[Rfam]
RNA sequence: GGCUGUUUAUGACGUCUUUACACUAAAUCCAUUGUAUGUUUGAUGUGUAAGGAUUGAUUGCUCAGUC
Number, nucleotide and partner (000 for none) at each position: 001g067002g066003c065004u064005g063006u000007u000008u000009a000010u000011g000012a000013c000014g054015u053016c052017u051018u050019u049020a048021c047022a046023c045024u000025a000026a000027a000028u000029c042030c000031a040032u000033u000034g000035u000036a000037u000038g000039u000040u031041u000042g029043a000044u000045g023046u022047g021048u020049a019050a018051g017052g016053a015054u014055u000056g000057a000058u000059u000060g000061c000062u000063c005064a004065g003066u002067c001
Selenocysteine insertion sequence 1: a 67-nucleotide sequence from Mytilus galloprovincialis. The incorporation of selenocysteine into a protein sequence is directed by an in-frame UGA codon (usually a stop codon) within the coding region of the mRNA. Selenoprotein mRNAs contain a conserved secondary structure in the 3' UTR that is required for the distinction of UGA stop from UGA selenocysteine. The selenocysteine insertion sequence (SECIS) is around 60 nt in length and adopts a hairpin structure which is sufficiently well-defined and conserved to act as a computational screen for selenoprotein genes. It is annotated as a cis-regulatory element. On this family, see Walczak et al., RNA 1996: "A novel RNA structural motif in the selenocysteine insertion element of eukaryotic selenoprotein mRNAs". Pairs were carried over by alignment from the consensus structure, which is taken from published work.